RNA sequence: UACAGAGUAGGGUUGAUGCGUUUAGUGUAAUGGGAUAGGGAGUUGCCCAUUAACGAAAUUAUUGCGAUAUCAAUGCCGCUUCCGCUGAUA
Number, nucleotide and partner (000 for none) at each position: 001u090002a089003c087004a086005g085006a000007g000008u000009a000010g077011g076012g074013u073014u072015g071016a070017u069018g068019c066020g065021u064022u000023u000024a000025g054026u053027g000028u052029a051030a050031u049032g048033g047034g046035a000036u000037a000038g083039g082040g081041a080042g079043u000044u000045g000046c034047c033048c032049a031050u030051u029052a028053a026054c025055g000056a000057a000058a063059u000060u000061a000062u000063u058064g021065c020066g019067a000068u018069a017070u016071c015072a014073a013074u012075g000076c011077c010078g000079c042080u041081u040082c039083c038084g000085c005086u004087g003088a000089u002090a001

Rfam assigns this 90-nucleotide sequence from Finegoldia magna to the family "THF (Tetrahydrofolate) riboswitch aptamer". Rfam's curators write: Tetrahydrofolate (THF) riboswitch was first reported for Ames et al. as an RNA motif in 5' untranslated (5'-UTR)regions of folate transport and biosynthesis genes in Firmicutes genomes. Lineage of the source: Bacteria > Bacillati > Tissierellia > Peptoniphilaceae > Finegoldia magna. Rfam's curators put it in the seed alignment.